[Rfam]
RNA sequence: AGGAUUGUGUUUUCAGAGUUCAUGUCUACAGCUCAUUGCGGGGGCAGUUUCUUUGAUCGUGUGGAGCUGGACGCCAGGAGCAGGACACACCGUGUUCUUUCCUGAGUAUGAAGCCAACUCUCGGACUUGUUUUGUUGCACCUGCCACUAGGCAUUGAUGAUGAUCUUCCUUUCCUCCGGGAGAGUAAGAAGGAGAGGACGCAGUCCAAGUGGU
Dot-bracket structure: ..(..((.(((...(((.......)))..))).))...).........(((..(......).))).......((((...............((((((((((((..((..........((...((...(((......)))....))...))............)).(((.(((((...))))).).))..))))))))))))........))))

Shown here is a 213-nucleotide RNA sequence from Rhinopithecus bieti, a member of the family "Small nucleolar RNA U3". For this family Rfam cites "The uRNA database" (Zwieb, Nucleic Acids Res, 1997). Clan: U3 clan. Rfam 15.1 lists 19,072 matches to the family in 1,215 species. About the family: Small nucleolar RNAs (snoRNAs) are involved in the processing and modification of rRNA in the nucleolus. There are two main classes of snoRNAs: the box C/D class, and the box H/ACA class. U3 snoRNA is a member of the box C/D class. Indeed, the box C/D element is a subset of the six short sequence elements found in all U3 snoRNAs, namely boxes A, A', B, C, C', and D. The U3 snoRNA secondary structure is characterised by a small 5' domain (with boxes A and A'), and a larger 3' domain (with boxes B, C, C', and D), the two domains being linked by a single-stranded hinge. It is annotated as a C/D-box small nucleolar RNA.